Group II catalytic intron D1-D4-3: a 165-nucleotide sequence from Pseudoalteromonas galatheae.
[Rfam]
RNA sequence: AAAUCCGCGAGGGUUUGUAUGGAGGAAGCCGCUAGCAAAAUUGCGAGCUGAUGAACAAAAACAUCAUACUAGGCGUAGGCUGAAGACGAGUUAGCACAAGAUAACGAAGUCACGUGAUCUAACGGCCACCGUAAAUGAUGCAGUUGUGCAAUGAAAGUUAAUGUU
Numbered sequence: 001a002a003a004u005c006c007g008c009g010a011g012g013g014u015u016u017g018u019a020u021g022g023a024g025g026a027a028g029c030c031g032c033u034a035g036c037a038a039a040a041u042u043g044c045g046a047g048c049u050g051a052u053g054a055a056c057a058a059a060a061a062c063a064u065c066a067u068a069c070u071a072g073g074c075g076u077a078g079g080c081u082g083a084a085g086a087c088g089a090g091u092u093a094g095c096a097c098a099a100g101a102u103a104a105c106g107a108a109g110u111c112a113c114g115u116g117a118u119c120u121a122a123c124g125g126c127c128a129c130c131g132u133a134a135a136u137g138a139u140g141c142a143g144u145u146g147u148g149c150a151a152u153g154a155a156a157g158u159u160a161a162u163g164u165u
Stems, first nucleotide, its partner, number of pairs: 001016006028165001030163002035158002040152006046145005062140006073132003078127005085111003090105004
Group II introns are found in rRNA, tRNA and mRNA of organelles in fungi, plants and protists, and also in mRNA in bacteria. The base pairs follow the family's consensus structure.